[Rfam]
RNA sequence: CUUACGGGACGACCCGUACAACAAACCUUCAGCACGGGACGACCUGU
Numbered sequence: 001c002u003u004a005c006g007g008g009a010c011g012a013c014c015c016g017u018a019c020a021a022c023a024a025a026c027c028u029u030c031a032g033c034a035c036g037g038g039a040c041g042a043c044c045u046g047u
Stems, first nucleotide, its partner, number of pairs: 003018006034047005